[Rfam]
Shown here is a 61-nucleotide RNA from Rhamnella rubrinervis, a member of the family "Plastid-psbA-2 3UTR RNA".
By type it is a cis-regulatory element.
A search with the family's covariance model found it, with a score of 63 bits.
Nucleotides: 061
Stems, first nucleotide, its partner, number of pairs: 001057015017041002022037005
Number, partner (000 for none) and nucleotide at each position: 001057a002056u003055a004054a005053a006052g007051g008050a009049g010048c011047a012046a013045u014044a015043a016000c017041a018040a019000a020000c021000u022037u023036c024035u025034u026033g027000a028000u029000a030000g031000a032000a033026c034025a035024a036023g037022a038000a039000a040018u041017u042000u043015u044014u045013a046012u047011u048010g049009c050008u051007c052006c053005u054004u055003u056002a057001u058000u059000u060000u061000c